[Rfam]
Small nucleolar RNA SNORA41: a 134-nucleotide RNA from Felis catus. Rfam 15.1 lists 676 matches to the family in 522 species. The sequence is in the family's curated seed alignment. NCBI's taxonomy places the organism under Eukaryota, Bilateria, Vertebrata, Tetrapoda, Felis. Rfam classes the family as an H/ACA-box small nucleolar RNA. Its family is annotated with RNA processing and nucleolus in the Gene Ontology. ACA41 is a member of the H/ACA class of snoRNA that guide the sites of modification of uridines to pseudouridines.
RNA sequence: UUCCACAGCUACUGGUCUGCAGCCGCUCUUAUGGUAGCAGUUGUGGCAUUCCUCUGUGGGAAAGGAAACUGUCACACAAUUAAAUACCUCUUUCUUAGCACGACAGAAAGUGGGCAUGUGAGUGACAAACAGAU
Numbered sequence: 001u002u003c004c005a006c007a008g009c010u011a012c013u014g015g016u017c018u019g020c021a022g023c024c025g026c027u028c029u030u031a032u033g034g035u036a037g038c039a040g041u042u043g044u045g046g047c048a049u050u051c052c053u054c055u056g057u058g059g060g061a062a063a064g065g066a067a068a069c070u071g072u073c074a075c076a077c078a079a080u081u082a083a084a085u086a087c088c089u090c091u092u093u094c095u096u097a098g099c100a101c102g103a104c105a106g107a108a109a110g111u112g113g114g115c116a117u118g119u120g121a122g123u124g125a126c127a128a129a130c131a132g133a134u
Stems, first nucleotide, its partner, number of pairs: 003059004017046007025038001074123002077120002087114003090110006